[Rfam]
RNA sequence: GCAGCGAAUGCGGACGAAACUACAUCUUGCACAGAUCGUGGUCGCGGGUUCGAGUCCCGCCGGUGCUGCGAUGGGCAUGGGUCAGCCCCGUGUUCAUCGCAGCACCGUAGCUCAGGGGAUAGAGCACGAACGUUUCGUCAAACCUUGUCGCUGCAUU
Numbered sequence: 001g002c003a004g005c006g007a008a009u010g011c012g013g014a015c016g017a018a019a020c021u022a023c024a025u026c027u028u029g030c031a032c033a034g035a036u037c038g039u040g041g042u043c044g045c046g047g048g049u050u051c052g053a054g055u056c057c058c059g060c061c062g063g064u065g066c067u068g069c070g071a072u073g074g075g076c077a078u079g080g081g082u083c084a085g086c087c088c089c090g091u092g093u094u095c096a097u098c099g100c101a102g103c104a105c106c107g108u109a110g111c112u113c114a115g116g117g118g119a120u121a122g123a124g125c126a127c128g129a130a131c132g133u134u135u136c137g138u139c140a141a142a143c144c145u146u147g148u149c150g151c152u153g154c155a156u157u
Stems, first nucleotide, its partner, number of pairs: 002153006013139007023128001038127002044060005061107021110125004
Dot-bracket structure: .((((((.....(((((((...(..............((....(((((.......)))))(((((((((((((((((((((.....)))))))))))))))))))))..((((........)))))))....)))))))........))))))....
The record is a 157-nucleotide RNA sequence from Ottowia testudinis, which matches "Y RNA-like" in Rfam. A search with the family's covariance model found it, with a score of 75 bits. The literature on the family includes a 2013 paper in Cell by Chen et al., "An RNA degradation machine sculpted by Ro autoantigen and noncoding RNA". Rfam 15.1 lists 124 matches to the family in 99 species. Taxonomically the source falls in Ottowia (Bacteria, Betaproteobacteria, Burkholderiales, Comamonadaceae). The family's RNA type in Rfam is small RNA.